Source information: The family of this 49-nucleotide RNA from Thalassovita gelatinovora is "SAM/SAH riboswitch aptamer". Pairs were carried over by alignment from the consensus structure, which is taken from published work. The organism belongs to Thalassovita, within Bacteria. For this family Rfam cites "The structure of the SAM/SAH-binding riboswitch" (Weickhmann et al., Nucleic Acids Res, 2019).

RNA sequence: UCCCCGCCACAACGGCUUCCUGACGUGGCGGGCAGGAACUAAUGGAGCA
Numbered sequence: 001u002c003c004c005c006g007c008c009a010c011a012a013c014g015g016c017u018u019c020c021u022g023a024c025g026u027g028g029c030g031g032g033c034a035g036g037a038a039c040u041a042a043u044g045g046a047g048c049a
Base pairs, nucleotide, nucleotide: 004032005031006029007028008027009026010025013022014021015048016047017046019045020044